[Rfam]
RNA sequence: CAUUUCCAACUCAGAUCUAAUCAUUCAAACCCUGAAUGGUUUAGAUGUUGAAUACAACCCUAUGGUGGUCAAGCUAUCGGAUCAAACCAGUCUCACUUGGGUUGAUCUGCAGGCUCAAUUGCUGACCUUUGAAA
Numbered sequence: 001c002a003u004u005u006c007c008a009a010c011u012c013a014g015a016u017c018u019a020a021u022c023a024u025u026c027a028a029a030c031c032c033u034g035a036a037u038g039g040u041u042u043a044g045a046u047g048u049u050g051a052a053u054a055c056a057a058c059c060c061u062a063u064g065g066u067g068g069u070c071a072a073g074c075u076a077u078c079g080g081a082u083c084a085a086a087c088c089a090g091u092c093u094c095a096c097u098u099g100g101g102u103u104g105a106u107c108u109g110c111a112g113g114c115u116c117a118a119u120u121g122c123u124g125a126c127c128u129u130u131g132a133a134a
Stems, first nucleotide, its partner, number of pairs: 004133003008129001085103004090098001
Small nucleolar RNA Z247: a 134-nucleotide RNA sequence from Vigna angularis. The base pairs follow the family's consensus structure, which was predicted with PFOLD. Its family is annotated with RNA processing and nucleolus in the Gene Ontology.